About this RNA: The record is a 194-nucleotide RNA from Trichoglossum hirsutum, which matches "U2 spliceosomal RNA" in Rfam. By type it is a spliceosomal small nuclear RNA.
RNA sequence: UUAGCUCUCUUUGCCUUUUGGCUUAGAUCAAGUGUAGUAUCUGUUCUUUUCAGUUUAAUCUCUGAAAUGUUUCUAAGGAAACAAAUCGUGAUUAUACUUAUUUUUGUCUCUUGAUCGGCUCCCUCUGUGCUUGCGCAUGGAUCUGAUCACUGUGGCGCUGGUAUUGCACUGUCUCCAGCUGCUGCGAAGUUCGU
Dot-bracket structure: .......(((..(((....)))..)))....................((((((........))))))((((((....))))))..............................(((((.((....((((....))))..)).)))))...(((((.(((((.............)))))..)))))........